[Rfam]
RNA sequence: AUUCGUAUUCUUCCACAGCUUUCUUGAACUGCAAUUUCGUGUAAUCAGAUAAGCUGUUCGUUGCUGUCGUUGACGGCGCUUCAUACAUACGAGUACAUUGUUGCAGUUCAAUAAAGCUGUGGGAAGAUACAAACA
Numbered sequence: 001a002u003u004c005g006u007a008u009u010c011u012u013c014c015a016c017a018g019c020u021u022u023c024u025u026g027a028a029c030u031g032c033a034a035u036u037u038c039g040u041g042u043a044a045u046c047a048g049a050u051a052a053g054c055u056g057u058u059c060g061u062u063g064c065u066g067u068c069g070u071u072g073a074c075g076g077c078g079c080u081u082c083a084u085a086c087a088u089a090c091g092a093g094u095a096c097a098u099u100g101u102u103g104c105a106g107u108u109c110a111a112u113a114a115a116g117c118u119g120u121g122g123g124a125a126g127a128u129a130c131a132a133a134c135a
Stems, first nucleotide, its partner, number of pairs: 003132001005130003013122003017118006024111004029106007
This 135-nucleotide RNA sequence from Gossypium barbadense belongs to the Rfam family "MIR396 microRNA precursor family". Gene Ontology terms of the family: miRNA-mediated post-transcriptional gene silencing and RISC complex.